Rfam assigns this 120-nucleotide RNA from Myotis brandtii to the family "Small nucleolar RNA SNORA22". Gene Ontology terms of the family: nucleolus and RNA processing. Rfam classes the family as an H/ACA-box small nucleolar RNA. The match comes from Rfam's covariance-model search (91 bits). Taxonomically the source falls in Myotis (Eukaryota, Metazoa, Bilateria, Laurasiatheria). Rfam's curators write: ACA22 is a member of the H/ACA class of snoRNA that guide the sites of modification of uridines to pseudouridines.
RNA sequence: UUGGACUGAACCCAUGUGGAGUCUAAACAGUGGCCUAGUGCUAGAGCAAUGUCUGUUCUUCUCCUCUGCAUUGGAAGGACUACUUAUCCUUUUAAAUGUAUUCAGAAAGUCAGCACAUUA
Numbered sequence: 001u002u003g004g005a006c007u008g009a010a011c012c013c014a015u016g017u018g019g020a021g022u023c024u025a026a027a028c029a030g031u032g033g034c035c036u037a038g039u040g041c042u043a044g045a046g047c048a049a050u051g052u053c054u055g056u057u058c059u060u061c062u063c064c065u066c067u068g069c070a071u072u073g074g075a076a077g078g079a080c081u082a083c084u085u086a087u088c089c090u091u092u093u094a095a096a097u098g099u100a101u102u103c104a105g106a107a108a109g110u111c112a113g114c115a116c117a118u119u120a
Stems, first nucleotide, its partner, number of pairs: 001026005007020001010017002043059006065106004069098004073093007